[Rfam]
RNA: pemK RNA
RNA sequence: AUAAUGAUACUUCCGGCGACGGCUUGUCCCACAGGAAUGGGCAGGGGUGAAAGUCCCAUGU
Numbered sequence: 001a002u003a004a005u006g007a008u009a010c011u012u013c014c015g016g017c018g019a020c021g022g023c024u025u026g027u028c029c030c031a032c033a034g035g036a037a038u039g040g041g042c043a044g045g046g047g048u049g050a051a052a053g054u055c056c057c058a059u060g061u
Stems, first nucleotide, its partner, number of pairs: 012058001013022003023044002027040002045057003